Source information: Shown here is a 108-nucleotide RNA sequence from Agrobacterium bohemicum, a member of the family "Rhizobiales sRNA Atu_At1". It is annotated as a small RNA.
[Rfam]
RNA sequence: AGACGCACCGUGUCAAACGGACGCGAUGGUGCCGAAGAACAUCAGGAUUUUUCCGUUUUCUCUUGAUGGCCAACGAAAUGGCAGACGAGCUUCUCACCCAUCCGGUGC
Numbered sequence: 001a002g003a004c005g006c007a008c009c010g011u012g013u014c015a016a017a018c019g020g021a022c023g024c025g026a027u028g029g030u031g032c033c034g035a036a037g038a039a040c041a042u043c044a045g046g047a048u049u050u051u052u053c054c055g056u057u058u059u060c061u062c063u064u065g066a067u068g069g070c071c072a073a074c075g076a077a078a079u080g081g082c083a084g085a086c087g088a089g090c091u092u093c094u095c096a097c098c099c100a101u102c103c104g105g106u107g108c
Stems, first nucleotide, its partner, number of pairs: 006107004011023004025102005034093004040068007069082003
The match comes from Rfam's covariance-model search (108 bits). The family's consensus secondary structure was predicted with CMfinder.